A member of the RNA family "Bacterial RNase P class A" from Oceanospirillum sediminis, 354 nucleotides long. It scores 341 bits against the family's covariance model. Pairs were carried over by alignment from the consensus structure, which is taken from published work.
RNA sequence: GGAGUUGGCCAGACAGUCGCUGCUGCAUUUUAUGCAGGGGAGGAAAGUCCGGGCUCCGAAGGGCAGGGUGCCAGGUAACACCUGGGGGGCGUGAGCCUACGGAAAGUGCAGCAGAGAGUAAACCGCCGAUGGCCUCGCAGAGGCACAGGUAAGGGUGAAAGGGUGCGGUAAGAGCGCACCGCGCAACUGGUAACAGUUUGUGGCAUGGUAAACCCCACCCGGAGCAAGACCAAAUAGGAAUCCAAAUGUGCGGCCCGCACUGGAUUCGGGUAGGUUGCUUGAGGUUUAUGGCGACGUAAAUCCCAGAUGAAUGACUGUUCAAGACAGAACCCGGCUUAUCGGCCAGCUCCCACC
Numbered sequence: 001g002g003a004g005u006u007g008g009c010c011a012g013a014c015a016g017u018c019g020c021u022g023c024u025g026c027a028u029u030u031u032a033u034g035c036a037g038g039g040g041a042g043g044a045a046a047g048u049c050c051g052g053g054c055u056c057c058g059a060a061g062g063g064c065a066g067g068g069u070g071c072c073a074g075g076u077a078a079c080a081c082c083u084g085g086g087g088g089g090c091g092u093g094a095g096c097c098u099a100c101g102g103a104a105a106g107u108g109c110a111g112c113a114g115a116g117a118g119u120a121a122a123c124c125g126c127c128g129a130u131g132g133c134c135u136c137g138c139a140g141a142g143g144c145a146c147a148g149g150u151a152a153g154g155g156u157g158a159a160a161g162g163g164u165g166c167g168g169u170a171a172g173a174g175c176g177c178a179c180c181g182c183g184c185a186a187c188u189g190g191u192a193a194c195a196g197u198u199u200g201u202g203g204c205a206u207g208g209u210a211a212a213c214c215c216c217a218c219c220c221g222g223a224g225c226a227a228g229a230c231c232a233a234a235u236a237g238g239a240a241u242c243c244a245a246a247u248g249u250g251c252g253g254c255c256c257g258c259a260c261u262g263g264a265u266u267c268g269g270g271u272a273g274g275u276u277g278c279u280u281g282a283g284g285u286u287u288a289u290g291g292c293g294a295c296g297u298a299a300a301u302c303c304c305a306g307a308u309g310a311a312u313g314a315c316u317g318u319u320c321a322a323g324a325c326a327g328a329a330c331c332c333g334g335c336u337u338a339u340c341g342g343c344c345a346g347c348u349c350c351c352a353c354c
Stems, first nucleotide, its partner, number of pairs: 001350010011339001012319007020040002023037006045337003049334005054224004061256004066220005071085005086100001087098004101215002106213002108209002123154002125150003130145002133142001162180006181204001182202005187196003228276004238267006248260004283302008
Dot-bracket structure: ((((((((((((((((((.((.((((((...)))))).))....[[[.[[[[[((((...[[[[.((((((((((.....)))))(((((....)))).)((...((((.............(((((..((.(........).))..)))..)).......((((((.......))))))(((((((((....))).))))).)...))..)))))))))))))...((((......((((((....((((.]]]])))).)))))).....))))......((((((((....))))))))..........)))))))..........]]]]]]]].).))))))))))....